[Rfam]
RNA sequence: GGGAGUAGAUAGGUUCUGGUGUUCCUGGCGGUCUUCAAAACCGUUCUGCCGUGCUAAGACCAUGACGGGUGGGUUCGAUUCCCACAUAUUCCC
Numbered sequence: 001g002g003g004a005g006u007a008g009a010u011a012g013g014u015u016c017u018g019g020u021g022u023u024c025c026u027g028g029c030g031g032u033c034u035u036c037a038a039a040a041c042c043g044u045u046c047u048g049c050c051g052u053g054c055u056a057a058g059a060c061c062a063u064g065a066c067g068g069g070u071g072g073g074u075u076c077g078a079u080u081c082c083c084a085c086a087u088a089u090u091c092c093c
Stems, first nucleotide, its partner, number of pairs: 001093007008085001011026003016021001027045006047067002050064002070084004
The family of this 93-nucleotide sequence from Clostridium ljungdahlii is "Selenocysteine transfer RNA". It scores 64 bits against the family's covariance model. Pairs were carried over by alignment from the consensus structure, which is taken from published work.